[Rfam]
RNA sequence: UCCCAACCCAUGGGGGUCAUUAUAGAAGCGUGCUCGUCGCGACCCCUGCCAGCCCUUUUCAGGGCUGCAAUUCUACA
Numbered sequence: 001u002c003c004c005a006a007c008c009c010a011u012g013g014g015g016g017u018c019a020u021u022a023u024a025g026a027a028g029c030g031u032g033c034u035c036g037u038c039g040c041g042a043c044c045c046c047u048g049c050c051a052g053c054c055c056u057u058u059u060c061a062g063g064g065c066u067g068c069a070a071u072u073c074u075a076c077a
Base pairs, nucleotide, nucleotide: 013046014045015044016043017042018041021077023075024074025073026072027071028040029039030038050067051066052065053064054063055062056061